[Rfam]
RNA sequence: ACAACAUAUAACGAGCUUUUUCGUAUAAUCCCGGGAAUGGGCCCGGGAGUCUCUACAGGUCACCGUAAUGAUCUCGCUACGAAAAGAAGAGCGGCAAUA
Numbered sequence: 001a002c003a004a005c006a007u008a009u010a011a012c013g014a015g016c017u018u019u020u021u022c023g024u025a026u027a028a029u030c031c032c033g034g035g036a037a038u039g040g041g042c043c044c045g046g047g048a049g050u051c052u053c054u055a056c057a058g059g060u061c062a063c064c065g066u067a068a069u070g071a072u073c074u075c076g077c078u079a080c081g082a083a084a085a086g087a088a089g090a091g092c093g094g095c096a097a098u099a
Stems, first nucleotide, its partner, number of pairs: 018085008029048007057074006
This 99-nucleotide sequence from Paenibacillus solani belongs to the Rfam family "Purine riboswitch aptamer".
The source organism's lineage runs through Bacteria, Bacillati, Bacillota, Paenibacillaceae and Paenibacillus.
Its family is annotated with purine nucleobase biosynthetic process in the Gene Ontology.
The match comes from Rfam's covariance-model search (64 bits).
The family's consensus secondary structure is taken from published work.